[Rfam]
RNA: Bacterial RNase P class B
Organism: Vagococcus zengguangii
RNA sequence: GUUUUCGGGUAAUUACAGCAAUCUUUUGAUUGUUGAGGAAAGUCCAUGCUCUCACAAGCUGCGAUGCUUGUAGUGUUCGUGCUUAGCGAAAAAAUAAGCUAAGGGACUCAUUUAUUGAGUUACGGCAACUAAAAAAGCUAAGGUCUUUGGACUAUGCUUGAGUAAGUUUGAAAGUGCCACAGUGACGAAGUGUUUGGAGAAAUUCAAACAGUGGAACGGGUAAACCCCUCGAGAGAGCAACCCAAAUUAUGGUCGGGGCAUUCUUUUCACGGAAUUGAACGUAGAAAGGGAACAAAGUAAUCUUUGUAGACAGAUUAUUACCGUUGGUUUUUCGUUCCUGGGAAAACCAAUACAGAACAUGGCUUAUAGAA
Numbered sequence: 001g002u003u004u005u006c007g008g009g010u011a012a013u014u015a016c017a018g019c020a021a022u023c024u025u026u027u028g029a030u031u032g033u034u035g036a037g038g039a040a041a042g043u044c045c046a047u048g049c050u051c052u053c054a055c056a057a058g059c060u061g062c063g064a065u066g067c068u069u070g071u072a073g074u075g076u077u078c079g080u081g082c083u084u085a086g087c088g089a090a091a092a093a094a095u096a097a098g099c100u101a102a103g104g105g106a107c108u109c110a111u112u113u114a115u116u117g118a119g120u121u122a123c124g125g126c127a128a129c130u131a132a133a134a135a136a137g138c139u140a141a142g143g144u145c146u147u148u149g150g151a152c153u154a155u156g157c158u159u160g161a162g163u164a165a166g167u168u169u170g171a172a173a174g175u176g177c178c179a180c181a182g183u184g185a186c187g188a189a190g191u192g193u194u195u196g197g198a199g200a201a202a203u204u205c206a207a208a209c210a211g212u213g214g215a216a217c218g219g220g221u222a223a224a225c226c227c228c229u230c231g232a233g234a235g236a237g238c239a240a241c242c243c244a245a246a247u248u249a250u251g252g253u254c255g256g257g258g259c260a261u262u263c264u265u266u267u268c269a270c271g272g273a274a275u276u277g278a279a280c281g282u283a284g285a286a287a288g289g290g291a292a293c294a295a296a297g298u299a300a301u302c303u304u305u306g307u308a309g310a311c312a313g314a315u316u317a318u319u320a321c322c323g324u325u326g327g328u329u330u331u332u333c334g335u336u337c338c339u340g341g342g343a344a345a346a347c348c349a350a351u352a353c354a355g356a357a358c359a360u361g362g363c364u365u366a367u368a369g370a371a
Stems, first nucleotide, its partner, number of pairs: 004371003007367001008322006016035006040365003044362005049237005054071006077232003081228001082103006104123001105121006124227002127168004135159004142153003174225002176221003191210008241257003261291007292307006324350009